[Rfam]
RNA sequence: CCAAAGGCUCUUUUCAGAGCCAUCUCACUUGUCACAAAAAGAGUUG
Numbered sequence: 001c002c003a004a005a006g007g008c009u010c011u012u013u014u015c016a017g018a019g020c021c022a023u024c025u026c027a028c029u030u031g032u033c034a035c036a037a038a039a040a041g042a043g044u045u046g
Base pairs, nucleotide, nucleotide: 006021007020008019009018010017011016

The family of this 46-nucleotide sequence from Molossus molossus is "Histone 3' UTR stem-loop". Rfam's curators write: The mRNAs of metazoan histone genes lack a poly-A tail. 3' end processing occurs at a site between a highly conserved stem-loop (modelled by this family) and a purine rich region around 20 nts downstream (the histone downstream element, or HDE). The stem-loop is bound by a 31 kDa stem-loop binding protein (SLBP - also termed the histone hairpin binding protein, or HBP). Rfam classes the family as a cis-regulatory element.